[Rfam]
RNA sequence: GGGGAGGGCCUUUCAGGCAUCCUCUCCCAAACUAUUACGGCCCGGUCAUCUGACCGGGCCUUUUUUUGUCUAAUG
Dot-bracket structure: .......((((...))))....................(((((((((....)))))))))...............
A member of the RNA family "Makes More Granules Regulator RNA (mmgR)" from Altericroceibacterium endophyticum, 75 nucleotides long. The organism belongs to Altericroceibacterium, within Bacteria. Rfam describes the family as follows. SuhB later renamed mmgR (makes more granules regulator) was a putative non-coding RNA found multiple times in the Agrobacterium tumefaciens genome and related alpha-proteobacteria. Other non-coding RNAs uncovered in the same analysis include: speF, ybhL, metA, and serC.Several studies inSinorhizobium meliloti showed that suhB element is indeed a non-coding RNA:firstly it was detected on Northern blot and called Sm8RNA, secondly in an RNAseq study referred to as SmelC689.The mutant phenotype's (strain lacking the small RNA) cytoplasm contains higher content of polyhydroxybutyrate (PBH)storage granules than wild type strain. The sRNA is required to limit the PBH intracellular accumulation when the nitrogen-fixing Sinorhizobium meliloti is under condition of surplus carbon in relation to nitrogen. It has been renamed to mmgR. Further study confirmed that mmgR fine-tunes the regulation of PBH storage.Northern blot confirmed the expression of the sRNA in other rhizobia species. MmgR homologues were found in most alpha-proteobacteria. The match comes from Rfam's covariance-model search (43 bits). It is annotated as a small RNA.